[Rfam]
Nucleotides: 134
Stems, first nucleotide, its partner, number of pairs: 003051003019047004025041004078121002089109005
Number, partner (000 for none) and nucleotide at each position: 001000c002000u003051g004050c005049a006000g007000c008000c009000a010000a011000u012000u013000a014000a015000a016000c017000u018000g019047a020046c021045u022044g023000u024000g025041c026040u027039c028038u029000u030000c031000g032000u033000c034000u035000a036000u037000g038028g039027g040026g041025g042000c043000c044022c045021a046020g047019u048000g049005u050004g051003c052000c053000a054000u055000g056000g057000c058000u059000g060000c061000g062000a063000a064000c065000a066000g067000u068000a069000g070000c071000c072000u073000c074000c075000u076000c077000u078121g079120u080000a081000g082000u083000g084000u085000a086000u087000g088000c089109a090108g091107c092106c093105u094000g095000u096000u097000g098000a099000u100000c101000a102000u103000a104000u105093g106092g107091g108090u109089u110000u111000c112000c113000c114000u115000a116000a117000g118000g119000g120079a121078c122000c123000u124000u125000g126000a127000a128000g129000a130000c131000a132000g133000c134000c